[Rfam]
RNA sequence: AGCGUAAACUGACGGUGUUGUUGUAUAUGUCUGCAAGAUGGGCAGAUGUUUCUACAAGUGACCGUAAUCGCUAACUAUAACAACUCUAUCGGGGAAU
Dot-bracket structure: .................((((((((...((((((.......)))))).........(((((......)))))...))))))))..............
Numbered sequence: 001a002g003c004g005u006a007a008a009c010u011g012a013c014g015g016u017g018u019u020g021u022u023g024u025a026u027a028u029g030u031c032u033g034c035a036a037g038a039u040g041g042g043c044a045g046a047u048g049u050u051u052c053u054a055c056a057a058g059u060g061a062c063c064g065u066a067a068u069c070g071c072u073a074a075c076u077a078u079a080a081c082a083a084c085u086c087u088a089u090c091g092g093g094g095a096a097u
Stems, first nucleotide, its partner, number of pairs: 018083008029047006057072005

This 97-nucleotide RNA from Lachnospiraceae bacterium XBD2001 belongs to the Rfam family "Purine riboswitch aptamer".
About the family: Riboswitches are metabolite binding domains within certain messenger RNAs that serve as precision sensors for their corresponding targets.